This 99-nucleotide sequence from Laodelphax striatellus belongs to the Rfam family "Mitochondrial DNA control region secondary structure A". The organism belongs to Laodelphax, within Eukaryota.
RNA sequence: AAAUUGUAUUGAAGCACUAUUUUGUCAUAAAAGUAUCAUUCAUGCCACUAUACUGAAUGCAUAUAGUGCAUUGAUGCAUGCAUUCAUGCAUAUAGUAUA
Number, nucleotide and partner (000 for none) at each position: 001a000002a000003a000004u000005u090006g089007u088008a087009u086010u082011g081012a000013a000014g077015c076016a075017c000018u000019a000020u032021u031022u030023u029024g028025u000026c000027a000028u024029a023030a022031a021032a020033g053034u052035a000036u000037c000038a049039u000040u000041c000042a000043u000044g000045c000046c000047a000048c000049u038050a000051u000052a034053c033054u000055g000056a000057a071058u070059g069060c068061a067062u000063a000064u000065a000066g000067u061068g060069c059070a058071u057072u000073g000074a000075u016076g015077c014078a000079u000080g000081c011082a010083u000084u000085c000086a009087u008088g007089c006090a005091u000092a000093u000094a000095g000096u000097a000098u000099a000